Rfam assigns this 150-nucleotide RNA from Felis catus to the family "U12 minor spliceosomal RNA".

RNA sequence: AGGCCUUAAACUUAUGAGUAAAGAAACUUAUGAUUCGGGGUGAUGCCCAAAUCCUCACUGCUAAUGUAAGAUGAAUUUUUGAGCUGGUAGAGGUUUUCCCUAAGGCGACCCACCUACAUUGCGGGAUGCCUGGGAAUCUCAAUCUGCCCA
Numbered sequence: 001a002g003g004c005c006u007u008a009a010a011c012u013u014a015u016g017a018g019u020a021a022a023g024a025a026a027c028u029u030a031u032g033a034u035u036c037g038g039g040g041u042g043a044u045g046c047c048c049a050a051a052u053c054c055u056c057a058c059u060g061c062u063a064a065u066g067u068a069a070g071a072u073g074a075a076u077u078u079u080u081g082a083g084c085u086g087g088u089a090g091a092g093g094u095u096u097u098c099c100c101u102a103a104g105g106c107g108a109c110c111c112a113c114c115u116a117c118a119u120u121g122c123g124g125g126a127u128g129c130c131u132g133g134g135a136a137u138c139u140c141a142a143u144c145u146g147c148c149c150a
Stems, first nucleotide, its partner, number of pairs: 004023001006021003032053004037048003054070002057067002086148003091145005100134002103131005109125003113121001
Source information: The source organism's lineage runs through Eukaryota, Eumetazoa, Chordata, Felidae and Felis. Clan: U2 clan. The match comes from Rfam's covariance-model search (102 bits). For this family Rfam cites "Pre-mRNA splicing: the discovery of a new spliceosome doubles the challenge" (Tarn and Steitz, Trends Biochem Sci, 1997).